RNA sequence: GAGGCAAGAUGAAAAUAAAAUACAAUCUGAACUUUUCUGAAGACAGUCAGUUCCCUUCAGAGAUACA
Numbered sequence: 001g002a003g004g005c006a007a008g009a010u011g012a013a014a015a016u017a018a019a020a021u022a023c024a025a026u027c028u029g030a031a032c033u034u035u036u037c038u039g040a041a042g043a044c045a046g047u048c049a050g051u052u053c054c055c056u057u058c059a060g061a062g063a064u065a066c067a
Stems, first nucleotide, its partner, number of pairs: 001058004

Rfam assigns this 67-nucleotide RNA sequence from Sinocyclocheilus anshuiensis to the family "Small nucleolar RNA SNORD19". NCBI's taxonomy places the organism under Eukaryota, Bilateria, Teleostei, Cypriniphysae, Sinocyclocheilus. A search with the family's covariance model found it, with a score of 36 bits. The family has 22 seed sequences and 1,431 matches in Rfam 15.1. The literature on the family includes a 2001 paper in EMBO J by Huttenhofer et al., "RNomics: an experimental approach that identifies 201 candidates for novel, small, non-messenger RNAs in mouse". The family is grouped with related families in Rfam's "SNORD19 clan".